RNA sequence: UGCCAGUAAGAACAAACAUCUUAACCCCCUGCUCUAGUCCCAGAACCAAUAAUGGUGAACCCACUGGUGUAUCUGGGAGAGAGGAUGGAAACUUGGUUCCAUGAGGUCCAGCAAAUGGCAA
Numbered sequence: 001u002g003c004c005a006g007u008a009a010g011a012a013c014a015a016a017c018a019u020c021u022u023a024a025c026c027c028c029c030u031g032c033u034c035u036a037g038u039c040c041c042a043g044a045a046c047c048a049a050u051a052a053u054g055g056u057g058a059a060c061c062c063a064c065u066g067g068u069g070u071a072u073c074u075g076g077g078a079g080a081g082a083g084g085a086u087g088g089a090a091a092c093u094u095g096g097u098u099c100c101a102u103g104a105g106g107u108c109c110a111g112c113a114a115a116u117g118g119c120a121a
Stems, first nucleotide, its partner, number of pairs: 001120004
Shown here is a 121-nucleotide RNA from Urocitellus parryii, a member of the family "Small nucleolar RNA SNORD22". The literature on the family includes a 1996 paper in Nature by Tycowski et al., "A mammalian gene with introns instead of exons generating stable RNA products". The source organism's lineage runs through Eukaryota, Eumetazoa, Deuterostomia, Craniata and Urocitellus.